[Rfam]
RNA sequence: UGAAUAGAUGGGCAAACCGGGCGAAAGACCGGGACGCAAAGCCAAGGGCCUACCUCCCCCCAGGGGGACAGGGCAGCCGGCUGCACCU
Numbered sequence: 001u002g003a004a005u006a007g008a009u010g011g012g013c014a015a016a017c018c019g020g021g022c023g024a025a026a027g028a029c030c031g032g033g034a035c036g037c038a039a040a041g042c043c044a045a046g047g048g049c050c051u052a053c054c055u056c057c058c059c060c061c062a063g064g065g066g067g068a069c070a071g072g073g074c075a076g077c078c079g080g081c082u083g084c085a086c087c088u
Stems, first nucleotide, its partner, number of pairs: 012037002017032004022027001040082004046078002048074003055068004